The record is a 91-nucleotide RNA, which matches "DUF3800-VII RNA" in Rfam. Rfam classes the family as a small RNA.
[Rfam]
RNA sequence: GGCAGGCAAGCGCUAGGGGUAUCCCCGAGUUACCUUCGGGCAGCAGCUGUCGGUGAGACAGUGGUACAGGGGCCUAGGGGUCUGCCGCUCU
Numbered sequence: 001g002g003c004a005g006g007c008a009a010g011c012g013c014u015a016g017g018g019g020u021a022u023c024c025c026c027g028a029g030u031u032a033c034c035u036u037c038g039g040g041c042a043g044c045a046g047c048u049g050u051c052g053g054u055g056a057g058a059c060a061g062u063g064g065u066a067c068a069g070g071g072g073c074c075u076a077g078g079g080g081u082c083u084g085c086c087g088c089u090c091u
Stems, first nucleotide, its partner, number of pairs: 001086007011078001013077004022072004027067001029044003033040002047061004
The base pairs follow the family's consensus structure, which is taken from published work.